A member of the RNA family "c-di-GMP-I riboswitch aptamer" from Aquibacillus salsiterrae, 86 nucleotides long. A search with the family's covariance model found it, with a score of 85 bits. The organism belongs to Aquibacillus, within Bacteria. The base pairs follow the family's consensus structure, which is taken from published work.
[Rfam]
RNA sequence: UACCGACAAUGGCAAACUUUUUGAAAGAAAAGGACGCAAAACCACGGGCCUAAAGCAAGAACUGCAAUGGCGGCCGGGUUACCGAA
Numbered sequence: 001u002a003c004c005g006a007c008a009a010u011g012g013c014a015a016a017c018u019u020u021u022u023g024a025a026a027g028a029a030a031a032g033g034a035c036g037c038a039a040a041a042c043c044a045c046g047g048g049c050c051u052a053a054a055g056c057a058a059g060a061a062c063u064g065c066a067a068u069g070g071c072g073g074c075c076g077g078g079u080u081a082c083c084g085a086a
Stems, first nucleotide, its partner, number of pairs: 012037002017032006040080004045076003048071003055065003